[Rfam]
RNA: Ribosomal protein L10 leader
Organism: Neomoorella thermoacetica
RNA sequence: CAACUAAAUACCGGUUUGCCGUAGACAGCAGGUGCCACUGGCUUAAAUUUGCCUGCCGAGGUGAAAAGUUAACCGUCUGAACGGUUAGUCAGCUGUUGCCCUCGCCUGUCUGCGGGGGCUUUAAUUUUUAAGUA
Numbered sequence: 001c002a003a004c005u006a007a008a009u010a011c012c013g014g015u016u017u018g019c020c021g022u023a024g025a026c027a028g029c030a031g032g033u034g035c036c037a038c039u040g041g042c043u044u045a046a047a048u049u050u051g052c053c054u055g056c057c058g059a060g061g062u063g064a065a066a067a068g069u070u071a072a073c074c075g076u077c078u079g080a081a082c083g084g085u086u087a088g089u090c091a092g093c094u095g096u097u098g099c100c101c102u103c104g105c106c107u108g109u110c111u112g113c114g115g116g117g118g119c120u121u122u123a124a125u126u127u128u129u130a131a132g133u134a
Stems, first nucleotide, its partner, number of pairs: 028056006034042003098119008